A member of the RNA family "Yeast U1 spliceosomal RNA" from Saccharomyces cerevisiae, 568 nucleotides long. Its Rfam clan is "U1 clan". Rfam's curators write: U1 is a small nuclear RNA (snRNA) component of the spliceosome (involved in pre-mRNA splicing). Its 5' end forms complementary base pairs with the 5' splice junction, thus defining the 5' donor site of an intron. There are significant differences in sequence and secondary structure between metazoan and yeast U1 snRNAs, the latter being much longer (568 nucleotides as compared to 164 nucleotides in human). Nevertheless, secondary structure predictions suggest that all U1 snRNAs share a 'common core' consisting of helices I, II, the proximal region of III, and IV. This family represents the larger yeast sequences. It is one of the family's seed sequences. Gene Ontology terms of the family: U1 snRNP, pre-mRNA 5'-splice site binding and mRNA 5'-splice site recognition. A reference for the family is Zwieb (1997), "The uRNA database", Nucleic Acids Res.
RNA sequence: AUACUUACCUUAAGAUAUCAGAGGAGAUCAAGAAGUCCUACUGAUCAAACAUGCGCUUCCAAUAGUAGAAGGACGUUAAGCAUUUAUCAUUGAACUAUAAUUGUUCAUUGAAGUCAUUGAUGCAAACUCCUUGGUCACACACACAUACGGCGCGGAAGGCGUGUUUGCUGACGUUUCCAUUCCCUUGUUUCAAUCAUUGGUUAAUCCCUUGAUUCCUUUGGGGAUUUUUGGGUUAAACUGAUUUUUGGGGCCCUUUGUUUCUUCUGCCUGGAGAAGUUUGACACCCAAAUUCAAAUUGGUGUUAGGGGAGCUGGGGCCUUUCAAAAGAGAGCUUUGUAGAGGCAUUCUUUUUGACUACUUUUCUCUAGCGUGCCAUUUUAGUUUUUGACGGAGAUUCGAAUGAACUUAAGUUUAUGAUGAAGGUAUGGCUGUUGAGAUUAUUUGGUCGGGAUUGUAGUUUGAAGAUGUGCUCUUUUGAGCAGUCUCAACUUUGCUCGUUCCCGUUAUGGGAAAAAUUUUGGAAGGUCUUGGUAGGAACGGGUGGAUCUUAUAAUUUUUGAUUUAUUUU
Numbered sequence: 001a002u003a004c005u006u007a008c009c010u011u012a013a014g015a016u017a018u019c020a021g022a023g024g025a026g027a028u029c030a031a032g033a034a035g036u037c038c039u040a041c042u043g044a045u046c047a048a049a050c051a052u053g054c055g056c057u058u059c060c061a062a063u064a065g066u067a068g069a070a071g072g073a074c075g076u077u078a079a080g081c082a083u084u085u086a087u088c089a090u091u092g093a094a095c096u097a098u099a100a101u102u103g104u105u106c107a108u109u110g111a112a113g114u115c116a117u118u119g120a121u122g123c124a125a126a127c128u129c130c131u132u133g134g135u136c137a138c139a140c141a142c143a144c145a146u147a148c149g150g151c152g153c154g155g156a157a158g159g160c161g162u163g164u165u166u167g168c169u170g171a172c173g174u175u176u177c178c179a180u181u182c183c184c185u186u187g188u189u190u191c192a193a194u195c196a197u198u199g200g201u202u203a204a205u206c207c208c209u210u211g212a213u214u215c216c217u218u219u220g221g222g223g224a225u226u227u228u229u230g231g232g233u234u235a236a237a238c239u240g241a242u243u244u245u246u247g248g249g250g251c252c253c254u255u256u257g258u259u260u261c262u263u264c265u266g267c268c269u270g271g272a273g274a275a276g277u278u279u280g281a282c283a284c285c286c287a288a289a290u291u292c293a294a295a296u297u298g299g300u301g302u303u304a305g306g307g308g309a310g311c312u313g314g315g316g317c318c319u320u321u322c323a324a325a326a327g328a329g330a331g332c333u334u335u336g337u338a339g340a341g342g343c344a345u346u347c348u349u350u351u352u353g354a355c356u357a358c359u360u361u362u363c364u365c366u367a368g369c370g371u372g373c374c375a376u377u378u379u380a381g382u383u384u385u386u387g388a389c390g391g392a393g394a395u396u397c398g399a400a401u402g403a404a405c406u407u408a409a410g411u412u413u414a415u416g417a418u419g420a421a422g423g424u425a426u427g428g429c430u431g432u433u434g435a436g437a438u439u440a441u442u443u444g445g446u447c448g449g450g451a452u453u454g455u456a457g458u459u460u461g462a463a464g465a466u467g468u469g470c471u472c473u474u475u476u477g478a479g480c481a482g483u484c485u486c487a488a489c490u491u492u493g494c495u496c497g498u499u500c501c502c503g504u505u506a507u508g509g510g511a512a513a514a515a516u517u518u519u520g521g522a523a524g525g526u527c528u529u530g531g532u533a534g535g536a537a538c539g540g541g542u543g544g545a546u547c548u549u550a551u552a553a554u555u556u557u558u559g560a561u562u563u564a565u566u567u568u
Stems, first nucleotide, its partner, number of pairs: 010553003013548003017045005022039004046167009056158005074149003172539006181309006187251007197241005211226006261276005281302005287297002500510004